Rfam assigns this 297-nucleotide sequence from Stylophora pistillata to the family "RNase MRP".
For this family Rfam cites "Secondary structure of RNase MRP RNA as predicted by phylogenetic comparison" (Schmitt et al., FASEB J, 1993).
Rfam links the family to the GO terms rRNA processing, ribonuclease MRP complex and ribonuclease MRP activity.
A search with the family's covariance model found it, with a score of 110 bits.
Rfam 15.1 lists 3,510 matches to the family in 2,315 species.
Rfam's curators write: RNase MRP is an enzymatically active ribonucleoprotein with two distinct roles in eukaryotes. In mitochondria it plays a direct role in the initiation of mitochondrial DNA replication. In the nucleus it is involved in precursor rRNA processing, where it cleaves the internal transcribed spacer 1 between 18S and 5.8S rRNAs. Despite distinct functions, RNase MRP has been shown to be evolutionarily related to RNase P. Like eukaryotic RNase P, RNase MRP is not catalytically active without associated protein subunits.

[Rfam]
RNA sequence: UGACACAGUGAAGACUUGCUACGAAGCUACAUACGGAGAGAGGCUCGUAGAACUCGUUUCUGAGAGCUUACUUCUCAUCAACGCUGUGUUGGCUUUGGGAAAAGUCCCCGGACGUAUGCCAGAAAGUGUCAGUCACAAAGAAACAUGUUUUUUCUCGAGUCUUCGGCUCCAUGAGCCCAGCGGAGAAGCUAAAAUCGCAGAGCUGUUGGACGAGAGAAGGACUUUGGUCGAAGCAAAGUUAUGCAAGGUGACAUCAGUCGCUGAUGUUAUCUGAACGGGGCUUACUCUCAUUGUGUC
Number, nucleotide and partner (000 for none) at each position: 001u000002g297003a296004c295005a294006c293007a292008g291009u290010g289011a288012a000013g000014a249015c248016u246017u245018g244019c243020u000021a000022c097023g096024a095025a094026g093027c092028u000029a000030c000031a000032u000033a000034c000035g000036g076037a075038g074039a073040g072041a000042g000043g000044c000045u000046c000047g000048u000049a000050g000051a000052a000053c000054u000055c000056g000057u000058u000059u000060c000061u000062g000063a000064g000065a000066g000067c000068u000069u000070a000071c000072u040073u039074c038075u037076c036077a000078u000079c000080a000081a000082c000083g000084c000085u000086g000087u000088g000089u000090u000091g000092g027093c026094u025095u024096u023097g022098g000099g000100a000101a000102a283103a282104g281105u000106c280107c279108c278109c277110g000111g000112a000113c000114g000115u000116a000117u000118g130119c000120c128121a127122g000123a000124a000125a000126g000127u121128g120129u000130c118131a150132g149133u000134c147135a146136c000137a000138a000139a000140g000141a000142a000143a000144c000145a000146u135147g134148u000149u132150u131151u000152u221153u220154c219155u000156c000157g000158a000159g000160u217161c216162u215163u214164c000165g000166g000167c000168u210169c209170c208171a000172u000173g000174a000175g000176c000177c000178c205179a204180g203181c202182g000183g000184a000185g000186a000187a000188g198189c197190u000191a195192a000193a000194a000195u191196c000197g189198c188199a000200g000201a000202g181203c180204u179205g178206u000207u000208g170209g169210a168211c000212g000213a000214g163215a162216g161217a160218a000219g154220g153221a152222c000223u000224u000225u000226g000227g000228u000229c000230g000231a000232a000233g000234c000235a000236a000237a000238g000239u000240u000241a000242u000243g019244c018245a017246a016247g000248g015249u014250g000251a267252c266253a265254u264255c263256a262257g000258u000259c000260g000261c000262u256263g255264a254265u253266g252267u251268u000269a000270u000271c000272u000273g000274a000275a000276c000277g109278g108279g107280g106281c104282u103283u102284a000285c000286u000287c000288u011289c010290a009291u008292u007293g006294u005295g004296u003297c002